Shown here is an 89-nucleotide sequence from Prunus armeniaca, a member of the family "Small nucleolar RNA Z161/Z228".
Rfam classes the family as a C/D-box small nucleolar RNA.
A reference for the family is Chen et al. (2003), "The high diversity of snoRNAs in plants: identification and comparative study of 120 snoRNA genes from Oryza sativa", Nucleic Acids Res.
RNA sequence: AAAUCAGAUGAUGAAUUUGGAUAUACAUCUCACGACGGUCGUCUGAGACUCAGUGUCGACGUUGAAACGAUCCAAUGUUUCUGAUGUUU
Numbered sequence: 001a002a003a004u005c006a007g008a009u010g011a012u013g014a015a016u017u018u019g020g021a022u023a024u025a026c027a028u029c030u031c032a033c034g035a036c037g038g039u040c041g042u043c044u045g046a047g048a049c050u051c052a053g054u055g056u057c058g059a060c061g062u063u064g065a066a067a068c069g070a071u072c073c074a075a076u077g078u079u080u081c082u083g084a085u086g087u088u089u
Base pairs, nucleotide, nucleotide: 001089002088003087004086047057048056049055